[Rfam]
RNA sequence: AAGAUAUGAUGAGUGGUCAAUACUCGCAUUAUAAUAUGCGGGAAGGGCAUUCCAGCCUAGCCUGGUUACGACAAUUUGGAUGCCCUCACUUUUCACCAAUCUGAUCCC
Numbered sequence: 001a002a003g004a005u006a007u008g009a010u011g012a013g014u015g016g017u018c019a020a021u022a023c024u025c026g027c028a029u030u031a032u033a034a035u036a037u038g039c040g041g042g043a044a045g046g047g048c049a050u051u052c053c054a055g056c057c058u059a060g061c062c063u064g065g066u067u068a069c070g071a072c073a074a075u076u077u078g079g080a081u082g083c084c085c086u087c088a089c090u091u092u093u094c095a096c097c098a099a100u101c102u103g104a105u106c107c108c
Stems, first nucleotide, its partner, number of pairs: 003106002014098004023042005044086006050079002064076003
Source information: Rfam assigns this 108-nucleotide RNA sequence from Capsicum annuum to the family "Small nucleolar RNA Z279/snoR105/snoR108". It scores 79 bits against the family's covariance model. Its family is annotated with RNA processing and nucleolus in the Gene Ontology. This family includes the plant snoRNAs known as Z279, snoR105 and snoR108.